[Rfam]
The record is a 99-nucleotide RNA from Aeoliella straminimaris, which matches "Bacterial small signal recognition particle RNA" in Rfam. It scores 52 bits against the family's covariance model.
RNA sequence: GCGAGAGGCCCCUGCAAUGGGGGCCUAGUGAACCUGGUCAGGGUGGAAACACAGCAGCCAUAAGCUCGUGCUUCUUUGUGUGGGGGUCUCUCGCCCGGC
Number, nucleotide and partner (000 for none) at each position: 001g000002c093003g092004a091005g090006a089007g000008g000009c086010c085011c084012c083013u082014g081015c078016a000017a077018u000019g075020g074021g073022g072023g000024c000025c068026u000027a066028g065029u064030g000031a000032a000033c000034c000035u060036g059037g058038u057039c000040a000041g000042g000043g052044u051045g050046g000047a000048a000049a000050c045051a044052c043053a000054g000055c000056a000057g038058c037059c036060a035061u000062a000063a000064g029065c028066u027067c000068g025069u000070g000071c000072u022073u021074c020075u019076u000077u017078g015079u000080g000081u014082g013083g012084g011085g010086g009087u000088c000089u006090c005091u004092c003093g002094c000095c000096c000097g000098g000099c000

NCBI's taxonomy places the organism under Bacteria, Pseudomonadati, Pirellulales, Lacipirellulaceae, Aeoliella.